Rfam assigns this 138-nucleotide RNA sequence from Hymenochirus boettgeri to the family "Small nucleolar RNA SNORA22".
RNA sequence: AUGCACGGAGAACACCCAAGUGUGCUCUGUAGCUCCCUUGGUUAUAAUUCUGUGCCAUAAAGUAGCCUGUUCUUUCCUCUGCAUUUAGAGAUUUUUAUUUUUAAUUCUCUUGAUUGUAUUCAGAAGAACAGUACAAUG
Numbered sequence: 001a002u003g004c005a006c007g008g009a010g011a012a013c014a015c016c017c018a019a020g021u022g023u024g025c026u027c028u029g030u031a032g033c034u035c036c037c038u039u040g041g042u043u044a045u046a047a048u049u050c051u052g053u054g055c056c057a058u059a060a061a062g063u064a065g066c067c068u069g070u071u072c073u074u075u076c077c078u079c080u081g082c083a084u085u086u087a088g089a090g091a092u093u094u095u096u097a098u099u100u101u102u103a104a105u106u107c108u109c110u111u112g113a114u115u116g117u118a119u120u121c122a123g124a125a126g127a128a129c130a131g132u133a134c135a136a137u138g
Stems, first nucleotide, its partner, number of pairs: 003055006010049001014045001016041005022035001024033003059070001061068002078124004082116002085113001087110005
About the family: ACA22 is a member of the H/ACA class of snoRNA that guide the sites of modification of uridines to pseudouridines. The match comes from Rfam's covariance-model search (95 bits). Rfam classes the family as an H/ACA-box small nucleolar RNA. Its family is annotated with nucleolus and RNA processing in the Gene Ontology. The organism belongs to Hymenochirus, within Eukaryota.